Rfam assigns this 150-nucleotide sequence from Caenorhabditis latens to the family "Nematode sRNA ceN72-3_ceN74-2". NCBI's taxonomy places the organism under Eukaryota, Nematoda, Rhabditoidea, Peloderinae, Caenorhabditis.
[Rfam]
RNA sequence: UGCAUCGGUCCGGAGUUGAUGGGUUAUCUAUGAAAACGUUGCCCUCGGGAAACACCCCGGUCUCCUUGUGAAACCAAAACCGUCCAUUGGACAAGCCCGCGUUCUUAUGAAGAAUGCAAACCCUUCCCAUUAACACCACUUGACCGAACU
Numbered sequence: 001u002g003c004a005u006c007g008g009u010c011c012g013g014a015g016u017u018g019a020u021g022g023g024u025u026a027u028c029u030a031u032g033a034a035a036a037c038g039u040u041g042c043c044c045u046c047g048g049g050a051a052a053c054a055c056c057c058c059g060g061u062c063u064c065c066u067u068g069u070g071a072a073a074c075c076a077a078a079a080c081c082g083u084c085c086a087u088u089g090g091a092c093a094a095g096c097c098c099g100c101g102u103u104c105u106u107a108u109g110a111a112g113a114a115u116g117c118a119a120a121c122c123c124u125u126c127c128c129a130u131u132a133a134c135a136c137c138a139c140u141u142g143a144c145c146g147a148a149c150u
Stems, first nucleotide, its partner, number of pairs: 002150001006146005012137002015134009038053003042049002058090001099117006